[Rfam]
RNA sequence: CCCCUUCAAAUCCCCCAAUUCCCUGCCUAUAUUCAAUAUGUUCCCUUGUGGAACUAUGGACAUAAACGCGCUCGUAAUAAGCGGAUCGGACCAGGGGGCGGUACCCUGCGUCUCCACCAAAUACACACCGGCUGCGUCCUUCGUUUGGGGAUGCGAUCGGAUCUGGGGGGACGAAAUAGGAUCGACGAACGUCUAAAGGGGUUAGCUUUGUUUCGGCUGUCUGCCACCGUUAUCGGCGAAACUAGUACAAUUGCAAACGACAAUCGUGCUCCGGUUGCUCUGGCUGCGUAAGCAGUUCGAGUCGAACCGACUUUAAGCCCUUGCGCCUAGCCGCGUGAGGCGGGGUUCGCAGGUACCUGGCAACAGAAACCUGCACU
Numbered sequence: 001c002c003c004c005u006u007c008a009a010a011u012c013c014c015c016c017a018a019u020u021c022c023c024u025g026c027c028u029a030u031a032u033u034c035a036a037u038a039u040g041u042u043c044c045c046u047u048g049u050g051g052a053a054c055u056a057u058g059g060a061c062a063u064a065a066a067c068g069c070g071c072u073c074g075u076a077a078u079a080a081g082c083g084g085a086u087c088g089g090a091c092c093a094g095g096g097g098g099c100g101g102u103a104c105c106c107u108g109c110g111u112c113u114c115c116a117c118c119a120a121a122u123a124c125a126c127a128c129c130g131g132c133u134g135c136g137u138c139c140u141u142c143g144u145u146u147g148g149g150g151a152u153g154c155g156a157u158c159g160g161a162u163c164u165g166g167g168g169g170g171a172c173g174a175a176a177u178a179g180g181a182u183c184g185a186c187g188a189a190c191g192u193c194u195a196a197a198g199g200g201g202u203u204a205g206c207u208u209u210g211u212u213u214c215g216g217c218u219g220u221c222u223g224c225c226a227c228c229g230u231u232a233u234c235g236g237c238g239a240a241a242c243u244a245g246u247a248c249a250a251u252u253g254c255a256a257a258c259g260a261c262a263a264u265c266g267u268g269c270u271c272c273g274g275u276u277g278c279u280c281u282g283g284c285u286g287c288g289u290a291a292g293c294a295g296u297u298c299g300a301g302u303c304g305a306a307c308c309g310a311c312u313u314u315a316a317g318c319c320c321u322u323g324c325g326c327c328u329a330g331c332c333g334c335g336u337g338a339g340g341c342g343g344g345g346u347u348c349g350c351a352g353g354u355a356c357c358u359g360g361c362a363a364c365a366g367a368a369a370c371c372u373g374c375a376c377u
Base pairs, nucleotide, nucleotide: 040054041053042052043051044050058213059212060211061210062209068206069205070202071201072200073199082191083190086188087187088186092108093107094106095105096104109173110172111171112170113169114168115167214229215228216227220239221238223237224236225235343358344357345356346355349374350373351372352371353370354369
RNA: Alphaproteobacteria transfer-messenger RNA